[Rfam]
RNA sequence: CUCCGUGCUCCGGGGUCGGUGCAAUUCCGAACCGGCGGUCAGAGUCCGCGAGCCGUGCGAUGGCGACAUCGUCCGGUUGAUCCGGUGGAAUUCCGGGACCGACGGUGAAAGUCCGGAUGGGAGGCGGCACGGGU
Numbered sequence: 001c002u003c004c005g006u007g008c009u010c011c012g013g014g015g016u017c018g019g020u021g022c023a024a025u026u027c028c029g030a031a032c033c034g035g036c037g038g039u040c041a042g043a044g045u046c047c048g049c050g051a052g053c054c055g056u057g058c059g060a061u062g063g064c065g066a067c068a069u070c071g072u073c074c075g076g077u078u079g080a081u082c083c084g085g086u087g088g089a090a091u092u093c094c095g096g097g098a099c100c101g102a103c104g105g106u107g108a109a110a111g112u113c114c115g116g117a118u119g120g121g122a123g124g125c126g127g128c129a130c131g132g133g134u
Stems, first nucleotide, its partner, number of pairs: 003132006009124002017029003031112002033101002035049004044099002052077003081097005103115003
Dot-bracket structure: ..((((((((......(((.......))).[[((((((.....[[))))..(((....................)))...(((((.......)))))]])).(((.....]]))).......))..))))))..